[Rfam]
Record summary
Rfam assigns this 97-nucleotide sequence from Vasconcelosia minhoensis to the family "TPP riboswitch aptamer (THI element)". NCBI's taxonomy places the organism under Bacteria, Cyanophyceae, Cymatolegaceae, Vasconcelosia, Vasconcelosia minhoensis. Rfam links the family to the GO term thiamine pyrophosphate binding. It scores 68 bits against the family's covariance model.

RNA sequence: CUCUAAAGCUAGGGGUGCCUGCGUCGUCAGGCUGAGAACAUACCCUUAAAACCUGAGUCUGGGUAAUGCCAGCGGAGGGAAGCAUGCAUUGUCUUGA
Numbered sequence: 001c002u003c004u005a006a007a008g009c010u011a012g013g014g015g016u017g018c019c020u021g022c023g024u025c026g027u028c029a030g031g032c033u034g035a036g037a038a039c040a041u042a043c044c045c046u047u048a049a050a051a052c053c054u055g056a057g058u059c060u061g062g063g064u065a066a067u068g069c070c071a072g073c074g075g076a077g078g079g080a081a082g083c084a085u086g087c088a089u090u091g092u093c094u095u096g097a
Base pairs, nucleotide, nucleotide: 006085008083009082010081011046012045013044014043016040017032018031019030020029021028052078053077054076059072060071061070062069